[Rfam]
RNA sequence: GAGACACCACUAUGGAGCAGGACUUGCUUCAGUGGGGCUUUGGUGCUCACUGAAUCCUCCCCUUGAGUGUGUCACU
Numbered sequence: 001g002a003g004a005c006a007c008c009a010c011u012a013u014g015g016a017g018c019a020g021g022a023c024u025u026g027c028u029u030c031a032g033u034g035g036g037g038c039u040u041u042g043g044u045g046c047u048c049a050c051u052g053a054a055u056c057c058u059c060c061c062c063u064u065g066a067g068u069g070u071g072u073c074a075c076u
Base pairs, nucleotide, nucleotide: 001075003073004072005071006070007069011065012064014062015061017059021056022055029053030052031051032050033049034048035047036046037044038043
A member of the RNA family "mir-9229 microRNA precursor family" from Myotis davidii, 76 nucleotides long. Rfam links the family to the GO terms RISC complex and miRNA-mediated post-transcriptional gene silencing. Rfam 15.1 lists 27,225 matches to the family in 9 species. It scores 74 bits against the family's covariance model.